[Rfam]
The family of this 69-nucleotide RNA from Rhinopithecus roxellana is "U7 small nuclear RNA".
Rfam's curators write: Animal histone pre-mRNAs are spliced by a different mechanism than nuclear pre-mRNAs and self-splicing introns.

RNA sequence: GAAUAUUAAGAACUCUUCUAGAACUUGUCUAGCAGGUUUUCUGGUUUCUACUGGAAGUUUCUUACCCCA
Numbered sequence: 001g002a003a004u005a006u007u008a009a010g011a012a013c014u015c016u017u018c019u020a021g022a023a024c025u026u027g028u029c030u031a032g033c034a035g036g037u038u039u040u041c042u043g044g045u046u047u048c049u050a051c052u053g054g055a056a057g058u059u060u061c062u063u064a065c066c067c068c069a
Stems, first nucleotide, its partner, number of pairs: 035066003038057008
Rfam 15.1 lists 10,439 matches to the family in 569 species.